[Rfam]
RNA sequence: AACGGACCCCCACCAGAACACCCAGGGGACGAGGACGGGGGACCCACACGUCCUCUCGGAUAACCGGAAAGCUCUGCUCACGCAGCACUUUCCUUGGGGUGAAGCCCGAUUUCGAUCGGGCCGGGCUACCUCUCAGCCCGAACCCGACAGCUGACCUCGCAGGCGCCAGUGGAGAGGAUUU
Numbered sequence: 001a002a003c004g005g006a007c008c009c010c011c012a013c014c015a016g017a018a019c020a021c022c023c024a025g026g027g028g029a030c031g032a033g034g035a036c037g038g039g040g041g042a043c044c045c046a047c048a049c050g051u052c053c054u055c056u057c058g059g060a061u062a063a064c065c066g067g068a069a070a071g072c073u074c075u076g077c078u079c080a081c082g083c084a085g086c087a088c089u090u091u092c093c094u095u096g097g098g099g100u101g102a103a104g105c106c107c108g109a110u111u112u113c114g115a116u117c118g119g120g121c122c123g124g125g126c127u128a129c130c131u132c133u134c135a136g137c138c139c140g141a142a143c144c145c146g147a148c149a150g151c152u153g154a155c156c157u158c159g160c161a162g163g164c165g166c167c168a169g170u171g172g173a174g175a176g177g178a179u180u181u
Base pairs, nucleotide, nucleotide: 003034036159037158038157039156040155045096046095097145098144099143105120106119107118108117123139124138125137126136